[Rfam]
Nucleotides: 133
Base pairs, nucleotide, nucleotide: 010124012122013121015119016118017117018116019115020114021113022112023111024110025109026108027107028106029105030104032102033101
Number, partner (000 for none) and nucleotide at each position: 001000u002000u003000a004000a005000u006000u007000g008000c009000u010124g011000c012122u013121g014000c015119a016118g017117c018116a019115u020114c021113a022112u023111c024110a025109a026108g027107a028106u029105u030104c031000u032102c033101a034000u035000a036000g037000c038000a039000a040000a041000g042000g043000g044000g045000u046000a047000a048000u049000u050000g051000g052000u053000u054000u055000g056000g057000a058000g059000c060000a061000a062000u063000a064000a065000g066000g067000g068000a069000c070000c071000a072000c073000c074000u075000c076000a077000a078000a079000c080000a081000a082000a083000u084000u085000a086000a087000u088000g089000c090000c091000a092000c093000c094000u095000a096000a097000a098000g099000c100000u101033u102032g103000u104030g105029a106028a107027u108026c109025u110024u111023g112022a113021u114020g115019a116018u117017g118016c119015u120000c121013c122012a123000c124010c125000g126000g127000c128000a129000a130000a131000c132000a133000g
Rfam assigns this 133-nucleotide sequence from Cajanus cajan to the family "mir-172 microRNA precursor family". From the family's description: mir-172 has been experimentally verified in Arabidopsis thaliana. This family is thought to target mRNAs coding for APETALA2-like transcription factors. The mature sequence is excised from the 3' arm of the hairpin. Rfam links the family to the GO terms RISC complex and miRNA-mediated post-transcriptional gene silencing. The literature on the family includes a 2002 paper in Plant Physiol by Mette et al., "Short RNAs can identify new candidate transposable element families in Arabidopsis". A search with the family's covariance model found it, with a score of 71 bits.